Vault RNA: a 99-nucleotide RNA from Podarcis lilfordi. NCBI's taxonomy places the organism under Eukaryota, Dipnotetrapodomorpha, Amniota, Lacertibaenia, Podarcis. This family of RNAs are found as part of the enigmatic vault ribonucleoprotein complex. A search with the family's covariance model found it, with a score of 36 bits.

RNA sequence: GAGCCAGCUUAGCCCAACAGUUGUACAGACUAAUGCAUUGUUUGGAUCCUGCAAUUGCCUACCGUGGUUUGAGACCCAUGGGCACUGUCUGGCUUUUAA
Numbered sequence: 001g002a003g004c005c006a007g008c009u010u011a012g013c014c015c016a017a018c019a020g021u022u023g024u025a026c027a028g029a030c031u032a033a034u035g036c037a038u039u040g041u042u043u044g045g046a047u048c049c050u051g052c053a054a055u056u057g058c059c060u061a062c063c064g065u066g067g068u069u070u071g072a073g074a075c076c077c078a079u080g081g082g083c084a085c086u087g088u089c090u091g092g093c094u095u096u097u098a099a
Stems, first nucleotide, its partner, number of pairs: 002094006012083004017079001020076001024073001026071003